[Rfam]
RNA sequence: UCGGGGAAACCCCUGUAACCCGCAUGGCAGGAGCGGGGGACCCACUUCUGGGGCACUCCGGUGCUCCUUGGGGUGAAGUCCGCGCCACACGGCAUACCCGCCGUCGCGUGGACCGGGUGCAUCUCUCCCACCCGAACCCGACAGCUCACCUCGCAGGCGUCUGGAGGUGUGCUU
Numbered sequence: 001u002c003g004g005g006g007a008a009a010c011c012c013c014u015g016u017a018a019c020c021c022g023c024a025u026g027g028c029a030g031g032a033g034c035g036g037g038g039g040a041c042c043c044a045c046u047u048c049u050g051g052g053g054c055a056c057u058c059c060g061g062u063g064c065u066c067c068u069u070g071g072g073g074u075g076a077a078g079u080c081c082g083c084g085c086c087a088c089a090c091g092g093c094a095u096a097c098c099c100g101c102c103g104u105c106g107c108g109u110g111g112a113c114c115g116g117g118u119g120c121a122u123c124u125c126u127c128c129c130a131c132c133c134g135a136a137c138c139c140g141a142c143a144g145c146u147c148a149c150c151u152c153g154c155a156g157g158c159g160u161c162u163g164g165a166g167g168u169g170u171g172c173u174u
Stems, first nucleotide, its partner, number of pairs: 011159001013157002019031002033154006043070002071139003079112007115133004